[Rfam]
RNA: Mycobacterium sRNA Ms_IGR-8
RNA sequence: CUCAAGCCUUUUCGUCGAGCGUGAAGUUGUUGAGGAAAUUCCGGCGAUUUCCCGCAGCAACUUC
Numbered sequence: 001c002u003c004a005a006g007c008c009u010u011u012u013c014g015u016c017g018a019g020c021g022u023g024a025a026g027u028u029g030u031u032g033a034g035g036a037a038a039u040u041c042c043g044g045c046g047a048u049u050u051c052c053c054g055c056a057g058c059a060a061c062u063u064c
Stems, first nucleotide, its partner, number of pairs: 023064010034053002036050001040046001